[Rfam]
RNA sequence: GAUGAGUGAUGAAAAUAGCCUAAUCCGAGCAUCAGAAAAGACCCCUUAGUCUGCCUGAAGCAUGACCUCUGUAGUUCUGAGA
Numbered sequence: 001g002a003u004g005a006g007u008g009a010u011g012a013a014a015a016u017a018g019c020c021u022a023a024u025c026c027g028a029g030c031a032u033c034a035g036a037a038a039a040g041a042c043c044c045c046u047u048a049g050u051c052u053g054c055c056u057g058a059a060g061c062a063u064g065a066c067c068u069c070u071g072u073a074g075u076u077c078u079g080a081g082a
Base pairs, nucleotide, nucleotide: 029061030060032058033057039052040051041050042049

This 82-nucleotide RNA from Capra hircus belongs to the Rfam family "Small nucleolar RNA U2-19". On this family, see Tycowski et al., Curr Biol 2004: "Guide RNAs with 5' Caps and Novel Box C/D snoRNA-like Domains for Modification of snRNAs in Metazoa". The family's consensus secondary structure is taken from published work.